[Rfam]
A member of the RNA family "RNase MRP" from Nakaseomyces glabratus, 340 nucleotides long.
NCBI's taxonomy places the organism under Eukaryota, Dikarya, Ascomycota, Saccharomycetes, Nakaseomyces.
Its Rfam clan is "RNaseP clan".
Gene Ontology terms of the family: ribonuclease MRP complex, ribonuclease MRP activity and rRNA processing.
The base pairs follow the family's consensus structure, which is taken from published work.

RNA sequence: CCAUGGUCGAAGAAUCGUCUGUCAUCGAAGCUUGCACAAGGAGUCCAACAGAUUUUUAAUGAUGUGUCGGAUUCACAAAAGCUUUGGGUCGAAAGUCUCCCACCUGAUCGUAUGCGGAAAACGUAAUGAGAUUUAAAAAUUUGUUAAAAUGUUUAAAUCAACUCAUUUAAGGUAUUCUUCGGAAUAUUUUACCAUGUCCUGGGGUUUUGUUAAAAUCCUGGUUGUAUCUUUUCGGUACUGAAAUCCUUUGUAUAGGUUUCAAACCAUAGUUAUGACGAUUGCGUUAUCUUUAUUUAUUAUUGGUAACGUAACCCAAUGGAGCUUACUCUCUCGACCAAUG
Numbered sequence: 001c002c003a004u005g006g007u008c009g010a011a012g013a014a015u016c017g018u019c020u021g022u023c024a025u026c027g028a029a030g031c032u033u034g035c036a037c038a039a040g041g042a043g044u045c046c047a048a049c050a051g052a053u054u055u056u057u058a059a060u061g062a063u064g065u066g067u068c069g070g071a072u073u074c075a076c077a078a079a080a081g082c083u084u085u086g087g088g089u090c091g092a093a094a095g096u097c098u099c100c101c102a103c104c105u106g107a108u109c110g111u112a113u114g115c116g117g118a119a120a121a122c123g124u125a126a127u128g129a130g131a132u133u134u135a136a137a138a139a140u141u142u143g144u145u146a147a148a149a150u151g152u153u154u155a156a157a158u159c160a161a162c163u164c165a166u167u168u169a170a171g172g173u174a175u176u177c178u179u180c181g182g183a184a185u186a187u188u189u190u191a192c193c194a195u196g197u198c199c200u201g202g203g204g205u206u207u208u209g210u211u212a213a214a215a216u217c218c219u220g221g222u223u224g225u226a227u228c229u230u231u232u233c234g235g236u237a238c239u240g241a242a243a244u245c246c247u248u249u250g251u252a253u254a255g256g257u258u259u260c261a262a263a264c265c266a267u268a269g270u271u272a273u274g275a276c277g278a279u280u281g282c283g284u285u286a287u288c289u290u291u292a293u294u295u296a297u298u299a300u301u302g303g304u305a306a307c308g309u310a311a312c313c314c315a316a317u318g319g320a321g322c323u324u325a326c327u328c329u330c331u332c333g334a335c336c337a338a339u340g
Stems, first nucleotide, its partner, number of pairs: 002340002004337005009330002013280006025087007041074006093324003097321004113125004172238003180234005190226003282308006
From the family's description: RNase MRP is an enzymatically active ribonucleoprotein with two distinct roles in eukaryotes. In mitochondria it plays a direct role in the initiation of mitochondrial DNA replication. In the nucleus it is involved in precursor rRNA processing, where it cleaves the internal transcribed spacer 1 between 18S and 5.8S rRNAs.